[Rfam]
RNA sequence: AGAUUUUCGAAUCCGUGCAGAGAUUUUGUCAGACACCAAACCAUUUAGGCUGACUAGACGUCCAAGAUAAGUGAAGUU
Numbered sequence: 001a002g003a004u005u006u007u008c009g010a011a012u013c014c015g016u017g018c019a020g021a022g023a024u025u026u027u028g029u030c031a032g033a034c035a036c037c038a039a040a041c042c043a044u045u046u047a048g049g050c051u052g053a054c055u056a057g058a059c060g061u062c063c064a065a066g067a068u069a070a071g072u073g074a075a076g077u078u
Stems, first nucleotide, its partner, number of pairs: 002077001004075003008071001011068003016064002020062002022059001024058003028054003

This 78-nucleotide sequence from Schistosoma curassoni belongs to the Rfam family "mir-3492 microRNA precursor family". Rfam links the family to the GO terms miRNA-mediated post-transcriptional gene silencing and RISC complex. The match comes from Rfam's covariance-model search (49 bits). The base pairs follow the family's consensus structure, which was predicted with RNAalifold.